[Rfam]
RNA: mir-166 microRNA precursor family
RNA sequence: UUUGAGGGGACUGUUGUCUGGCUCGAGGACUCUUAUUCUAAUACAAUCUCAUUUGAAUACAUUCAGAUCUGAUGAUUGAUUAGGGUUUUAGUGUCGUCGGACCAGGCUUCAUUCCCCCCAAU
Numbered sequence: 001u002u003u004g005a006g007g008g009g010a011c012u013g014u015u016g017u018c019u020g021g022c023u024c025g026a027g028g029a030c031u032c033u034u035a036u037u038c039u040a041a042u043a044c045a046a047u048c049u050c051a052u053u054u055g056a057a058u059a060c061a062u063u064c065a066g067a068u069c070u071g072a073u074g075a076u077u078g079a080u081u082a083g084g085g086u087u088u089u090a091g092u093g094u095c096g097u098c099g100g101a102c103c104a105g106g107c108u109u110c111a112u113u114c115c116c117c118c119c120a121a122u
Stems, first nucleotide, its partner, number of pairs: 002121003006117005012111002016107006024099003